RNA sequence: CUAAUCGUGAGGUUAGGACUGAAGGAAGAAGGACUACAAAACUCGUUACUGACGAACAGGAACUGUAUACAUAUGCUAUUAGGUUGGGUGAGCACUCACAACUUGUCCCAACCUUUUGGGAUCAUUGUAACGUCCGAAACACAUUAAAGUGAUAACCGAAGUAGUAGAUGCAGCAGGGAUUGAGUGAAAGAAGAUGUU
Numbered sequence: 001c002u003a004a005u006c007g008u009g010a011g012g013u014u015a016g017g018a019c020u021g022a023a024g025g026a027a028g029a030a031g032g033a034c035u036a037c038a039a040a041a042c043u044c045g046u047u048a049c050u051g052a053c054g055a056a057c058a059g060g061a062a063c064u065g066u067a068u069a070c071a072u073a074u075g076c077u078a079u080u081a082g083g084u085u086g087g088g089u090g091a092g093c094a095c096u097c098a099c100a101a102c103u104u105g106u107c108c109c110a111a112c113c114u115u116u117u118g119g120g121a122u123c124a125u126u127g128u129a130a131c132g133u134c135c136g137a138a139a140c141a142c143a144u145u146a147a148a149g150u151g152a153u154a155a156c157c158g159a160a161g162u163a164g165u166a167g168a169u170g171c172a173g174c175a176g177g178g179a180u181u182g183a184g185u186g187a188a189a190g191a192a193g194a195u196g197u198u
Stems, first nucleotide, its partner, number of pairs: 001016006028198002031195001037190001041185005047178001049176003063173006075165003079160002082157004086135004092128003
This 198-nucleotide RNA from Lishizhenia tianjinensis belongs to the Rfam family "Group II catalytic intron D1-D4-3". Group II introns are found in rRNA, tRNA and mRNA of organelles in fungi, plants and protists, and also in mRNA in bacteria. The source organism's lineage runs through Bacteria, Bacteroidota, Flavobacteriia, Flavobacteriales and Lishizhenia.